[Rfam]
RNA sequence: CAAGAGACGGUCACUGUCAUUACCCUCACGUUAGGAUAUGGGAAGACUGGUGCUGA
Numbered sequence: 001c002a003a004g005a006g007a008c009g010g011u012c013a014c015u016g017u018c019a020u021u022a023c024c025c026u027c028a029c030g031u032u033a034g035g036a037u038a039u040g041g042g043a044a045g046a047c048u049g050g051u052g053c054u055g056a
Stems, first nucleotide, its partner, number of pairs: 006051001008049004017041004024035003

Transposase-1 RNA: a 56-nucleotide sequence from Ligilactobacillus ruminis.
The base pairs follow the family's consensus structure, which is taken from published work.